[Rfam]
A member of the RNA family "Small nucleolar RNA SNORA28" from Jaculus jaculus, 120 nucleotides long. Clan: SNORA28 clan.
RNA sequence: AAGCAAUACUCUGUGGCAGAUAAUCAAAACCAACACAAUUUGAACUUGCUAUAGCAAGAAAGUCUAACCUCUUCUGGUGUUCUUUCCCAUGAGAAAAGCCAUUACAUAGACUUAAACAGU
Numbered sequence: 001a002a003g004c005a006a007u008a009c010u011c012u013g014u015g016g017c018a019g020a021u022a023a024u025c026a027a028a029a030c031c032a033a034c035a036c037a038a039u040u041u042g043a044a045c046u047u048g049c050u051a052u053a054g055c056a057a058g059a060a061a062g063u064c065u066a067a068c069c070u071c072u073u074c075u076g077g078u079g080u081u082c083u084u085u086c087c088c089a090u091g092a093g094a095a096a097a098g099c100c101a102u103u104a105c106a107u108a109g110a111c112u113u114a115a116a117c118a119g120u
Stems, first nucleotide, its partner, number of pairs: 010043002012037004021032001060113007070106001072104001075101004081094004
ACA28 is a member of the H/ACA class of snoRNA that guide the sites of modification of uridines to pseudouridines. Its family is annotated with nucleolus and RNA processing in the Gene Ontology. The family's consensus secondary structure was predicted with RNAfold. By type it is an H/ACA-box small nucleolar RNA.